RNA: RNA-OUT
Organism: Echinimonas agarilytica
RNA sequence: UCACGCAUGAGGUGUUUAUCUGUUUGUUUUUUGGCGAAAGUAAUUCGAUCAAAUCGCCUCAUGCGUGUCUA
Number, nucleotide and partner (000 for none) at each position: 001u000002c000003a066004c065005g064006c063007a062008u061009g060010a059011g058012g057013u056014g055015u053016u000017u051018a000019u000020c000021u000022g000023u000024u000025u000026g000027u000028u000029u000030u000031u000032u000033g000034g000035c047036g046037a045038a044039a000040g000041u000042a000043a000044u038045u037046c036047g035048a000049u000050c000051a017052a000053a015054u000055c014056g013057c012058c011059u010060c009061a008062u007063g006064c005065g004066u003067g000068u000069c000070u000071a000